[Rfam]
RNA sequence: UUAUUUAUUCAGCUUAAUUUCCCAAAAGGAAAACGGGGGACCCAUUUGUGGGGUGAAUCGCGAAAAGCGUAGAGCAGGCGCUCGAACCCGUCAGCUAACCUCGUAAGCGUUGGAACACGUUUAA
Numbered sequence: 001u002u003a004u005u006u007a008u009u010c011a012g013c014u015u016a017a018u019u020u021c022c023c024a025a026a027a028g029g030a031a032a033a034c035g036g037g038g039g040a041c042c043c044a045u046u047u048g049u050g051g052g053g054u055g056a057a058u059c060g061c062g063a064a065a066a067g068c069g070u071a072g073a074g075c076a077g078g079c080g081c082u083c084g085a086a087c088c089c090g091u092c093a094g095c096u097a098a099c100c101u102c103g104u105a106a107g108c109g110u111u112g113g114a115a116c117a118c119g120u121u122u123a124a
Base pairs, nucleotide, nucleotide: 012108013107014106018032019031020030021029022028033104034103035102036101037100038099043050044049051089052088053087059069060068061067072083073082074081075080
The family of this 124-nucleotide RNA sequence from Desulfosporosinus sp. I2 is "c-di-AMP riboswitch aptamer (ydaO/yuaA leader)". Taxonomically the source falls in Desulfosporosinus (Bacteria, Bacillati, Clostridia, Eubacteriales). This family represents a conserved RNA structure found upstream of the ydaO and yuaA genes in Bacillus subtilis and related genes in other bacteria. The ydaO/yuaA element is thought to act as a genetic 'off' switch for the ydaO and yuaA genes in its native state. A search with the family's covariance model found it, with a score of 83 bits.